[Rfam]
RNA sequence: AACCUCGUGGUUCGCAACCAUCCCACGUAAAAAAACUAGGAAUAU
Numbered sequence: 001a002a003c004c005u006c007g008u009g010g011u012u013c014g015c016a017a018c019c020a021u022c023c024c025a026c027g028u029a030a031a032a033a034a035a036c037u038a039g040g041a042a043u044a045u
Stems, first nucleotide, its partner, number of pairs: 006027005016037001
Shown here is a 45-nucleotide RNA sequence from Cricetibacter osteomyelitidis, a member of the family "PreQ1 (pre queuosine) riboswitch aptamer". Taxonomically the source falls in Cricetibacter (Bacteria, Pseudomonadati, Pseudomonadota, Pasteurellales). A reference for the family is Spitale et al. (2009), "The structural basis for recognition of the PreQ0 metabolite by an unusually small riboswitch aptamer domain", J Biol Chem. Rfam 15.1 lists 873 matches to the family in 692 species. Pairs were carried over by alignment from the consensus structure. This family is a bacterial riboswitch that binds to the metabolite preQ1, an intermediate in the biosynthesis of the modified nucleoside queuosine from GTP. One example of this riboswitch is located in the leader of the Bacillus subtilis ykvJKLM (queCDEF) operon which encodes four genes necessary for queuosine production.